[Rfam]
RNA: Actinobacteria sRNA Ms_IGR-5
Organism: Actinocrinis puniceicyclus
RNA sequence: AUACACCGAAGGGAGGUGAUCCUGAAUUGAGUAGUGUCAGGACGCGUGAGGUGGCUGUCCGCUAGCCGCCCCGCCCGCUUCGACAGGCUCGGCGGCGGGCGAAUACCAGCAGUCACCCGGCCCGCAGGCUCACCGGCAUCGUCCCCGGUGCCCUGCCGCGGCGGCCUUCCGAGACCGCCCGGUGGGGAAGCAGCCUGCGGGCCGUU
Numbered sequence: 001a002u003a004c005a006c007c008g009a010a011g012g013g014a015g016g017u018g019a020u021c022c023u024g025a026a027u028u029g030a031g032u033a034g035u036g037u038c039a040g041g042a043c044g045c046g047u048g049a050g051g052u053g054g055c056u057g058u059c060c061g062c063u064a065g066c067c068g069c070c071c072c073g074c075c076c077g078c079u080u081c082g083a084c085a086g087g088c089u090c091g092g093c094g095g096c097g098g099g100c101g102a103a104u105a106c107c108a109g110c111a112g113u114c115a116c117c118c119g120g121c122c123c124g125c126a127g128g129c130u131c132a133c134c135g136g137c138a139u140c141g142u143c144c145c146c147g148g149u150g151c152c153c154u155g156c157c158g159c160g161g162c163g164g165c166c167u168u169c170c171g172a173g174a175c176c177g178c179c180c181g182g183u184g185g186g187g188a189a190g191c192a193g194c195c196u197g198c199g200g201g202c203c204g205u206u
Stems, first nucleotide, its partner, number of pairs: 015059004020054001060101004065096002068093003073088003118204013132183005